RNA sequence: AAAGAUCAGGGCGAUGGAGCUCGCCUUUAAAUGCUCUAUGAGCUGAUAGCUCCUGUUGGAUC
Numbered sequence: 001a002a003a004g005a006u007c008a009g010g011g012c013g014a015u016g017g018a019g020c021u022c023g024c025c026u027u028u029a030a031a032u033g034c035u036c037u038a039u040g041a042g043c044u045g046a047u048a049g050c051u052c053c054u055g056u057u058g059g060a061u062c
Stems, first nucleotide, its partner, number of pairs: 010025004016053006033043003
About this RNA:
Shown here is a 62-nucleotide RNA from Desulfofundulus thermobenzoicus, a member of the family "Fluoride riboswitch aptamer (crcB RNA motif)". Taxonomically the source falls in Desulfofundulus (Bacteria, Bacillati, Bacillota, Eubacteriales).